[Rfam]
RNA sequence: AAAAUACAACCAUGCUCUGCUGGUUGUUGACCAGCGACAUCCCAGGCAGCCAAGACCUUUAAGGCUGCGGUCCGAGACAUUUGGGCUGCUCAUUUUUUAUCAACCACUGCAAAAGCACCAAUCCGCAAGGGCUGGUGAG
Dot-bracket structure: ...........(((.(..((((((.....))))))).))).....((((((..[[.[.....))))))(((((((.....)))))))].]].........................((((.(((....))).))))...
Notes:
The family of this 139-nucleotide RNA sequence from Saezia sanguinis is "radC RNA". Rfam 15.1 lists 500 matches to the family in 142 species. It is annotated as a cis-regulatory element.